[Rfam]
RNA: mir-31 microRNA precursor family
Organism: Eleutherodactylus coqui
RNA sequence: AUCUAGAGGGGAGGCAAGAUGUUGGCAUAGCUGUGAUCUUGAAAACCUGCUAUGCCAACGUAUUGCCAUCCUUCUUUUCU
Numbered sequence: 001a002u003c004u005a006g007a008g009g010g011g012a013g014g015c016a017a018g019a020u021g022u023u024g025g026c027a028u029a030g031c032u033g034u035g036a037u038c039u040u041g042a043a044a045a046c047c048u049g050c051u052a053u054g055c056c057a058a059c060g061u062a063u064u065g066c067c068a069u070c071c072u073u074c075u076u077u078u079c080u
Stems, first nucleotide, its partner, number of pairs: 005075007013067005019061003023057009
Dot-bracket structure: ....(((((((.(((((.(((.(((((((((.................))))))))).))).))))).))))))).....